RNA sequence: AUGCCUUAAACUGAUGAGUAAGGAAAAUAACGACGCGGGGUGACGCCCGUGUCCUCGCUCACAUUCGCGAGAGAAAUUUUUGACCGGGUAUAGGUCCGCUCGCUGAGGUGACUCGCCUACUUUGCGAGAUGCCUUGCGAACCUGGGAUCUACCCG
Numbered sequence: 001a002u003g004c005c006u007u008a009a010a011c012u013g014a015u016g017a018g019u020a021a022g023g024a025a026a027a028u029a030a031c032g033a034c035g036c037g038g039g040g041u042g043a044c045g046c047c048c049g050u051g052u053c054c055u056c057g058c059u060c061a062c063a064u065u066c067g068c069g070a071g072a073g074a075a076a077u078u079u080u081u082g083a084c085c086g087g088g089u090a091u092a093g094g095u096c097c098g099c100u101c102g103c104u105g106a107g108g109u110g111a112c113u114c115g116c117c118u119a120c121u122u123u124g125c126g127a128g129a130u131g132c133c134u135u136g137c138g139a140a141c142c143u144g145g146g147a148u149c150u151a152c153c154c155g
Stems, first nucleotide, its partner, number of pairs: 004023005032053008054071005085155005092150006101138002106134005112128005